[Rfam]
RNA sequence: GUGCAGCGCAUGUCAAUCGGACACGACGGUACUGGGGAACAGGGCGAUUUUUCCGAUUUCCCGUUCUGACAUCAACGUAUUGGUAGACGAGCCUCUAACCCGUCUGUGCU
Numbered sequence: 001g002u003g004c005a006g007c008g009c010a011u012g013u014c015a016a017u018c019g020g021a022c023a024c025g026a027c028g029g030u031a032c033u034g035g036g037g038a039a040c041a042g043g044g045c046g047a048u049u050u051u052u053c054c055g056a057u058u059u060c061c062c063g064u065u066c067u068g069a070c071a072u073c074a075a076c077g078u079a080u081u082g083g084u085a086g087a088c089g090a091g092c093c094u095c096u097a098a099c100c101c102g103u104c105u106g107u108g109c110u
Base pairs, nucleotide, nucleotide: 006109007108008107009106011023012022013021014020025104026103027102028101029100034095035094036093037092040068041067042066043065044064045063046062069084070083073082